[Rfam]
Nucleotides: 125
Base pairs, nucleotide, nucleotide: 006050008048010045014041015040016039021034022033023032065118067116068115069114070113071112077106078105080103081102085096086095087094
Number, partner (000 for none) and nucleotide at each position: 001000a002000c003000a004000g005000u006050c007000u008048g009000a010045a011000a012000a013000u014041c015040a016039c017000u018000u019000g020000g021034g022033g023032u024000c025000u026000c027000c028000u029000g030000c031000a032023g033022c034021c035000c036000c037000u038000g039016g040015u041014g042000c043000g044000a045010u046000a047000a048008c049000u050006g051000u052000g053000c054000u055000g056000a057000c058000a059000g060000c061000a062000g063000a064000g065118g066000g067116a068115g069114c070113a071112u072000u073000a074000a075000a076000c077106u078105c079000c080103u081102u082000g083000c084000c085096c086095a087094c088000a089000g090000u091000a092000a093000a094087g095086u096085g097000u098000g099000g100000c101000a102081a103080g104000u105078g106077a107000u108000g109000c110000c111000c112071a113070u114069g115068u116067u117000c118065c119000u120000a121000u122000a123000a124000u125000c
Shown here is a 125-nucleotide RNA sequence from Bucco capensis, a member of the family "Small nucleolar RNA ACA64". The family's consensus secondary structure was predicted with WAR. The family has 30 seed sequences and 9,537 matches in Rfam 15.1. Taxonomically the source falls in Bucco (Eukaryota, Archelosauria, Archosauria, Neognathae).